[Rfam]
RNA sequence: CAAAAUCAUCAGGAGCGAUUUCCAGAUGGAAAUCCACCAACCGGCCCAAUUGGGAACGGUGGUUAGGUCAAAUAAUGACAGAUGUGCCCUUUAGGGAAACUCUGAACCGCCUGA
Numbered sequence: 001c002a003a004a005a006u007c008a009u010c011a012g013g014a015g016c017g018a019u020u021u022c023c024a025g026a027u028g029g030a031a032a033u034c035c036a037c038c039a040a041c042c043g044g045c046c047c048a049a050u051u052g053g054g055a056a057c058g059g060u061g062g063u064u065a066g067g068u069c070a071a072a073u074a075a076u077g078a079c080a081g082a083u084g085u086g087c088c089c090u091u092u093a094g095g096g097a098a099a100c101u102c103u104g105a106a107c108c109g110c111c112u113g114a
Stems, first nucleotide, its partner, number of pairs: 007084004015035001017034007036063003041059003045054002087096003

A member of the RNA family "SAM-I/IV (S-adenosyl methionine) riboswitch aptamer", 114 nucleotides long. The family is grouped with related families in Rfam's "SAM clan".